[Rfam]
RNA sequence: AAGGUGGCAUAUGCCACCGCUAUGGACUGGUUCAUCGCUGUGUGCUAUGCCUUC
Numbered sequence: 001a002a003g004g005u006g007g008c009a010u011a012u013g014c015c016a017c018c019g020c021u022a023u024g025g026a027c028u029g030g031u032u033c034a035u036c037g038c039u040g041u042g043u044g045c046u047a048u049g050c051c052u053u054c
Base pairs, nucleotide, nucleotide: 002053003052006051007050008049010047011046013045014044015042016041017040019038020037022035023034024033025032026031